Shown here is an 86-nucleotide RNA sequence from Populus trichocarpa, a member of the family "MIR6438 microRNA precursor family". Its family is annotated with RISC complex and miRNA-mediated post-transcriptional gene silencing in the Gene Ontology. The family has 2 seed sequences and 11 matches in Rfam 15.1.
RNA sequence: GAGAGUUGUUUGAUCUGUCCUGAAACACCAAUCACGAAUCUUGCAAGAAUUGAGGUAUUGUACACAGAAUAGGUGAAAUAGCUUUC
Numbered sequence: 001g002a003g004a005g006u007u008g009u010u011u012g013a014u015c016u017g018u019c020c021u022g023a024a025a026c027a028c029c030a031a032u033c034a035c036g037a038a039u040c041u042u043g044c045a046a047g048a049a050u051u052g053a054g055g056u057a058u059u060g061u062a063c064a065c066a067g068a069a070u071a072g073g074u075g076a077a078a079u080a081g082c083u084u085u086c
Base pairs, nucleotide, nucleotide: 001086002085003084004083005082006081007080008079009078010077011076013074014068015067016066017065018064019055020054021053023051024050026047029043030042031041